[Rfam]
RNA: Cyano-1 RNA
RNA sequence: GUGUGUGUGAGGAAAAGAGAAAAGCACUUGGGGUCGAAACACGGAAAGACUCCCAGGUGCUUUAUCUU
Numbered sequence: 001g002u003g004u005g006u007g008u009g010a011g012g013a014a015a016a017g018a019g020a021a022a023a024g025c026a027c028u029u030g031g032g033g034u035c036g037a038a039a040c041a042c043g044g045a046a047a048g049a050c051u052c053c054c055a056g057g058u059g060c061u062u063u064a065u066c067u068u
Stems, first nucleotide, its partner, number of pairs: 021063005028056005033050003